[Rfam]
RNA sequence: UCAGUUGCUCAUUCAACUUUUUAUGUCGGCCCACAAUCGGGUGGAAACAUGCCACAUAAGCCUGGAAUGAUGCCGAAGUAAGGUGCCUACCGUCCAACUCAAUGAUAUUCGCCUUCGGGCCUUAUCAAACACAGGGCGACACGUGGAGUGAGGCACCACCUACAUGCCCUUGAAGGCAUGAAGGCUCCUCACUGGCGGGAUAGUUAAAAACGGCUAUCCCGCCGUCAUUA
Numbered sequence: 001u002c003a004g005u006u007g008c009u010c011a012u013u014c015a016a017c018u019u020u021u022u023a024u025g026u027c028g029g030c031c032c033a034c035a036a037u038c039g040g041g042u043g044g045a046a047a048c049a050u051g052c053c054a055c056a057u058a059a060g061c062c063u064g065g066a067a068u069g070a071u072g073c074c075g076a077a078g079u080a081a082g083g084u085g086c087c088u089a090c091c092g093u094c095c096a097a098c099u100c101a102a103u104g105a106u107a108u109u110c111g112c113c114u115u116c117g118g119g120c121c122u123u124a125u126c127a128a129a130c131a132c133a134g135g136g137c138g139a140c141a142c143g144u145g146g147a148g149u150g151a152g153g154c155a156c157c158a159c160c161u162a163c164a165u166g167c168c169c170u171u172g173a174a175g176g177c178a179u180g181a182a183g184g185c186u187c188c189u190c191a192c193u194g195g196c197g198g199g200a201u202a203g204u205u206a207a208a209a210a211c212g213g214c215u216a217u218c219c220c221g222c223c224g225u226c227a228u229u230a
Base pairs, nucleotide, nucleotide: 001078007073008072009070010069011068012067017064019058022054027051082157083156084155085154086153087152088151092137093136094135095134104126105125106124107123166177167176168175193224194223195222196221197220198219199218200217201216202215203214204213205212